[Rfam]
RNA sequence: GGGGCCGAUUAGGAUUCGACGCCGGUGACAAAACUUGAGGGGCAUGCCGAGUAGGUGACAGUUCUCGUAAAUCCGCUGCCACAACUUUAUAGUUGCCAACGACGACAACUACGCUCUAGCCGCUUAAUGCGCUAGCAGUCUCUAGGGGAUGCCUGUAAACCCAAACAGACUGUCAGACAGAACAGGAUCGCCGCCAAGUUUGCUGUAGACGUAACGGCUAAAACUCAUACAGCUCGCUCUAAGCGCCCUGCCACUCGGGCCGCGAGGAGUUAACUUAGUAGAGAUGGCUAAGCAUGUAGAACCGAUAGCAGAGUGCUGACGGACGGGGGUUCAAAUCCCCCCGGCUCCACCA
Dot-bracket structure: (((((((............((.(((((.......(((..((.(((((((((...[[[.[[...)))).........]].]]].................................((((.(((.....)))))))((((((.(..(((...[[[[[...))).)..)))))).........]]]]]...[[[[..[.....(((((.....]..]]]]..........)))))..(((((..((((((.[[[[[[[))).)))..)))))..........]]].]]]]...))))).....))..))).....))))).))...(((((.......))))))))))))....